[Rfam]
RNA sequence: CCCGGGGCUUGCGCCUCGGGCUAUGUACGGUUGCCCCUUCGGGGCU
Numbered sequence: 001c002c003c004g005g006g007g008c009u010u011g012c013g014c015c016u017c018g019g020g021c022u023a024u025g026u027a028c029g030g031u032u033g034c035c036c037c038u039u040c041g042g043g044g045c046u
Base pairs, nucleotide, nucleotide: 001020002019003018004017005016006015007014008013033045034044035043036042037041
This 46-nucleotide RNA sequence from Singulisphaera acidiphila belongs to the Rfam family "Acido-Lenti-1 RNA". The organism belongs to Singulisphaera acidiphila, within Bacteria.